[Rfam]
A member of the RNA family "c-di-GMP-II-GAG riboswitch aptamer", 90 nucleotides long.
The base pairs follow the family's consensus structure, which is taken from published work.
RNA sequence: CGAUUCGGAGGAGGCGAAGAUCCGCGGCGCGCCCUGACUCGGCCGCCUGAGCGUCGCGCGGAGCCAGUGGCGAGACCGACCCCCCGCGUG
Numbered sequence: 001c002g003a004u005u006c007g008g009a010g011g012a013g014g015c016g017a018a019g020a021u022c023c024g025c026g027g028c029g030c031g032c033c034c035u036g037a038c039u040c041g042g043c044c045g046c047c048u049g050a051g052c053g054u055c056g057c058g059c060g061g062a063g064c065c066a067g068u069g070g071c072g073a074g075a076c077c078g079a080c081c082c083c084c085c086g087c088g089u090g
Base pairs, nucleotide, nucleotide: 001090002089005086007084008083010081011080013065014064015063023058024057025056026055027054028053029052041077042076044072045071046070047069